[Rfam]
RNA sequence: AGUAUCUCUCAGGGCAGGGUGUAAUUCCCUACCGGCGGUAACAGUCCGCGACUCCCUGAAAAGGGACUGAACCGGUGGAACUCCGGUACCGACGGUCAAAGUCCGGAUGGAAGACGGGAUGCG
Numbered sequence: 001a002g003u004a005u006c007u008c009u010c011a012g013g014g015c016a017g018g019g020u021g022u023a024a025u026u027c028c029c030u031a032c033c034g035g036c037g038g039u040a041a042c043a044g045u046c047c048g049c050g051a052c053u054c055c056c057u058g059a060a061a062a063g064g065g066a067c068u069g070a071a072c073c074g075g076u077g078g079a080a081c082u083c084c085g086g087u088a089c090c091g092a093c094g095g096u097c098a099a100a101g102u103c104c105g106g107a108u109g110g111a112a113g114a115c116g117g118g119a120u121g122c123g
Stems, first nucleotide, its partner, number of pairs: 003121006009114002017029003031102002033091002035049004044089002053066002071087005093105003
Rfam assigns this 123-nucleotide RNA sequence from Muribaculum sp. An287 to the family "FMN riboswitch aptamer (RFN element)". The organism belongs to Muribaculum, within Bacteria. Its family is annotated with FMN binding in the Gene Ontology.